[Rfam]
RNA sequence: UUUAAACUGUUAGCCGCCAGCGGCUUGACCCGCUGUGGCCGCGGCGGCCUAGUUGUGACUGAAACGGCGGUA
Dot-bracket structure: ............((((((.((((((....[[[[[[[))))))))))))...............]]]]]]]..
The family of this 72-nucleotide sequence from Betaarterivirus europensis is "Polymerase ribosomal frameshift site". By type it is a frameshift element.